This 110-nucleotide RNA from Halanaerobium hydrogeniformans belongs to the Rfam family "SAM riboswitch aptamer (S box leader)". The organism belongs to Halanaerobium, within Bacteria. Gene Ontology term of the family: regulation of gene expression.
RNA sequence: UAUUCAUCAAGAGUGGCGGAGGGAAUGGCCCUGUGAUGCCCGGCAACCUACUUAAAUAUUAAAGUAAGGUGCUAAUUCCAGCAUUCCAAUUAUGGAAUGAUAGAUGAGAG
Number, nucleotide and partner (000 for none) at each position: 001u110002a000003u108004u107005c106006a105007u104008c103009a000010a000011g000012a000013g041014u000015g040016g039017c038018g000019g000020a000021g031022g030023g029024a000025a000026u080027g079028g078029c023030c022031c021032u000033g000034u000035g000036a000037u000038g017039c016040c015041c013042g073043g072044c071045a070046a000047c069048c068049u066050a065051c064052u063053u000054a000055a000056a000057u000058a000059u000060u000061a000062a000063a052064g051065u050066a049067a000068g048069g047070u045071g044072c043073u042074a000075a000076u000077u102078c028079c027080a026081g000082c099083a098084u097085u096086c095087c094088a000089a000090u000091u000092a000093u000094g087095g086096a085097a084098u083099g082100a000101u000102a077103g008104a007105u006106g005107a004108g003109a000110g001